Plastid-psbA-4 3UTR RNA: a 58-nucleotide sequence from Mentha canadensis. The sequence is in the family's curated seed alignment.

RNA sequence: GAAAAUAAAGGAGCAAGAAACCCUUUCUUGUUUUAUCAAAAAGGGUUUCUUGCUCCUU
Numbered sequence: 001g002a003a004a005a006u007a008a009a010g011g012a013g014c015a016a017g018a019a020a021c022c023c024u025u026u027c028u029u030g031u032u033u034u035a036u037c038a039a040a041a042a043g044g045g046u047u048u049c050u051u052g053c054u055c056c057u058u
Stems, first nucleotide, its partner, number of pairs: 008058011022045002025042002028039003
Record summary
A reference for the family is Richter et al. (2023), "Retrograde signaling in plants: A critical review focusing on the GUN pathway and beyond", Plant Commun. The family is grouped with related families in Rfam's "Plastid-psbA 3UTR RNA clan". Rfam's curators write: Plastid psbA-4 is a non-coding RNA (ncRNA) present in plastids. Rfam classes the family as a cis-regulatory element.